[Rfam]
RNA sequence: UUAGCUAUUUUAGGUAAGUUUGUAUUCAUGAACUCAUGGGUGCAAACAACUCGUUUGUAUCUAUGAUGGCUAGGGUGUUUUGAGAUGACUUUCAGCCACGUAGAUGAAAAUCUAUAGUGGCUUUUAUUUUUGGUUAUGUAUGAAAGGUAUUCACUGUAGGUUUUCUGUAACUUUAC
Numbered sequence: 001u002u003a004g005c006u007a008u009u010u011u012a013g014g015u016a017a018g019u020u021u022g023u024a025u026u027c028a029u030g031a032a033c034u035c036a037u038g039g040g041u042g043c044a045a046a047c048a049a050c051u052c053g054u055u056u057g058u059a060u061c062u063a064u065g066a067u068g069g070c071u072a073g074g075g076u077g078u079u080u081u082g083a084g085a086u087g088a089c090u091u092u093c094a095g096c097c098a099c100g101u102a103g104a105u106g107a108a109a110a111u112c113u114a115u116a117g118u119g120g121c122u123u124u125u126a127u128u129u130u131u132g133g134u135u136a137u138g139u140a141u142g143a144a145a146g147g148u149a150u151u152c153a154c155u156g157u158a159g160g161u162u163u164u165c166u167g168u169a170a171c172u173u174u175a176c
Stems, first nucleotide, its partner, number of pairs: 001073007011063006018047012050057001078145005084139001089132001094122006101114003146172003150169001152167002
Overview: This 176-nucleotide sequence from Enterococcus canis belongs to the Rfam family "Enterococcus sRNA 2410". Produced as 2 transcripts on Northern blot. Expressed in mid, late exponential and early stationary phases of growth. Expression remained uniform under daptomycin exposure. It is annotated as a small RNA. For this family Rfam cites "Small RNAs in vancomycin-resistant Enterococcus faecium involved in daptomycin response and resistance" (Sinel et al., Sci Rep, 2017).